[Rfam]
RNA sequence: UCGAUGCGUUUCCAUUUGAGUAUCCUGAAAACGGGCUUUUCAGCAUGGUACGCAUUUAUUUAGGAGUGCAUAGUGGCCCGUAUAGCAGGCAUUAACAUUUCUGAU
Numbered sequence: 001u002c003g004a005u006g007c008g009u010u011u012c013c014a015u016u017u018g019a020g021u022a023u024c025c026u027g028a029a030a031a032c033g034g035g036c037u038u039u040u041c042a043g044c045a046u047g048g049u050a051c052g053c054a055u056u057u058a059u060u061u062a063g064g065a066g067u068g069c070a071u072a073g074u075g076g077c078c079c080g081u082a083u084a085g086c087a088g089g090c091a092u093u094a095a096c097a098u099u100u101c102u103g104a105u
Stems, first nucleotide, its partner, number of pairs: 003056007012048002024089003032080004040104003
Annotation: Rfam assigns this 105-nucleotide RNA from a Plautia stali symbiont to the family "Alpha operon ribosome binding site". Gene Ontology term of the family: ribosome binding. A reference for the family is Schlax et al. (2001), "Translational repression of the Escherichia coli alpha operon mRNA: importance of an mRNA conformational switch and a ternary entrapment complex", J Biol Chem. A search with the family's covariance model found it, with a score of 87 bits. Pairs were carried over by alignment from the consensus structure, which is taken from published work. The bacterial alpha operon ribosome binding site is surrounded by this complex pseudoknotted structure. Translation of the mRNA produces 4 ribosomal protein products, one of which (S4) acts as a translational repressor by binding to the nested pseudoknot region. The mechanism of repression is thought to involve a conformational switch in the pseudoknot region and ribosome entrapment.